[Rfam]
RNA sequence: GGUCACGAGUUCCAGCGUGAAGCCCCGGCUGGCUGGACGGCAACCCUCUGCUGCAGCGGGGUGCCCCGGGAGGCGACCAGGCGCCCGCCAUGACGGCGGUCUGCAAGUGCACGGG
Numbered sequence: 001g002g003u004c005a006c007g008a009g010u011u012c013c014a015g016c017g018u019g020a021a022g023c024c025c026c027g028g029c030u031g032g033c034u035g036g037a038c039g040g041c042a043a044c045c046c047u048c049u050g051c052u053g054c055a056g057c058g059g060g061g062u063g064c065c066c067c068g069g070g071a072g073g074c075g076a077c078c079a080g081g082c083g084c085c086c087g088c089c090a091u092g093a094c095g096g097c098g099g100u101c102u103g104c105a106a107g108u109g110c111a112c113g114g115g
Stems, first nucleotide, its partner, number of pairs: 001078004009038001011037006021030002039065003044061003048056002081104003085099005
RNA: SAM (S-adenosyl methionine) riboswitch aptamer